Nucleotides: 051
Stems, first nucleotide, its partner, number of pairs: 002047018
Number, partner (000 for none) and nucleotide at each position: 001000u002047u003046g004045a005044g006043a007042a008041c009040c010039u011038u012037u013036u014035g015034a016033c017032u018031c019030a020000a021000g022000u023000a024000a025000u026000g027000g028000a029000g030019u031018g032017a033016g034015u035014c036013a037012a038011a039010a040009g041008g042007u043006u044005c045004u046003c047002a048000c049000a050000a051000a

This 51-nucleotide sequence from Carrierea calycina belongs to the Rfam family "Plastid-ccsA-ndhD-1 3UTR RNA". The family has 488 seed sequences and 1,322 matches in Rfam 15.1. The family's RNA type in Rfam is cis-regulatory element. The organism belongs to Carrierea, within Eukaryota. Pairs were carried over by alignment from the consensus structure, which was predicted with LocARNA. Its Rfam clan is "Plastid-ccsA_ndhD 3UTR RNA clan". About the family: Plastid-ccsA-ndhD-1 is a non-coding RNA (ncRNA) recognised in plastids. It was found in the three prime untranslated region (3UTR) of ccsA and ndhD genes, its 3UTR location suggests a role in transcript maturation.